Bacillaceae-1 RNA: a 66-nucleotide RNA from Peribacillus saganii. Rfam classes the family as a small RNA. It scores 48 bits against the family's covariance model. NCBI's taxonomy places the organism under Bacteria, Bacillati, Bacillota, Bacillaceae, Peribacillus. Pairs were carried over by alignment from the consensus structure, which is taken from published work. Rfam 15.1 lists 5,721 matches to the family in 247 species.
RNA sequence: GACAGAGGAAGAACGGCUAAGUUCGCCACGUCCUGUGGCAGCGUCGGCACUAGCACGUCCUGGGCG
Numbered sequence: 001g002a003c004a005g006a007g008g009a010a011g012a013a014c015g016g017c018u019a020a021g022u023u024c025g026c027c028a029c030g031u032c033c034u035g036u037g038g039c040a041g042c043g044u045c046g047g048c049a050c051u052a053g054c055a056c057g058u059c060c061u062g063g064g065c066g
Stems, first nucleotide, its partner, number of pairs: 014046004025039005053065002056062001
Dot-bracket structure: .............((((.......(((((.....)))))...))))......((.(.....).)).